[Rfam]
RNA sequence: CUUUAAAAAUCUGGAUCAAGCUGAAAAUUGAAACGACACAUCUUUAAUGGUGUGUUCGAGUCUCUCAAAUUUUCGCAAUCAGAAGUGAAACAUCUUCGG
Numbered sequence: 001c002u003u004u005a006a007a008a009a010u011c012u013g014g015a016u017c018a019a020g021c022u023g024a025a026a027a028u029u030g031a032a033a034c035g036a037c038a039c040a041u042c043u044u045u046a047a048u049g050g051u052g053u054g055u056u057c058g059a060g061u062c063u064c065u066c067a068a069a070u071u072u073u074c075g076c077a078a079u080c081a082g083a084a085g086u087g088a089a090a091c092a093u094c095u096u097c098g099g
Base pairs, nucleotide, nucleotide: 020076021075023074024073025072026071027070028069029068034058035057036056038055039054040053041052043050044049082097083096085094
The record is a 99-nucleotide sequence, which matches "Salmonella enterica Typhi npcRNA 44" in Rfam. Rfam classes the family as a non-coding RNA gene. A search with the family's covariance model found it, with a score of 101 bits. The base pairs follow the family's consensus structure, which was predicted with CMfinder.